[Rfam]
RNA sequence: AGCCGCGCUCGGCGAGCAAGACGGCAUUGCGCCUGUACUGCCCAGAAAUGUUGAGAGACGCCAAUGGGUUGAACAGGCCCUGCCGAACGAAGGCUUGGUCUAACGUACACUGCGGAUUGCGCUAAGUCGCAGCCUUCAAGUCGCACAGUGCCGAAGCUCUACGAAGGGGACUCGGU
Numbered sequence: 001a002g003c004c005g006c007g008c009u010c011g012g013c014g015a016g017c018a019a020g021a022c023g024g025c026a027u028u029g030c031g032c033c034u035g036u037a038c039u040g041c042c043c044a045g046a047a048a049u050g051u052u053g054a055g056a057g058a059c060g061c062c063a064a065u066g067g068g069u070u071g072a073a074c075a076g077g078c079c080c081u082g083c084c085g086a087a088c089g090a091a092g093g094c095u096u097g098g099u100c101u102a103a104c105g106u107a108c109a110c111u112g113c114g115g116a117u118u119g120c121g122c123u124a125a126g127u128c129g130c131a132g133c134c135u136u137c138a139a140g141u142c143g144c145a146c147a148g149u150g151c152c153g154a155a156g157c158u159c160u161a162c163g164a165a166g167g168g169g170a171c172u173c174g175g176u
Base pairs, nucleotide, nucleotide: 001172002171004169006167007162009091011158012157013156020152022150025148028145029144030143031142034109035108036107037106038105040069041068042067043066044065049060050059051058052057076100077099078098079097082094083093084092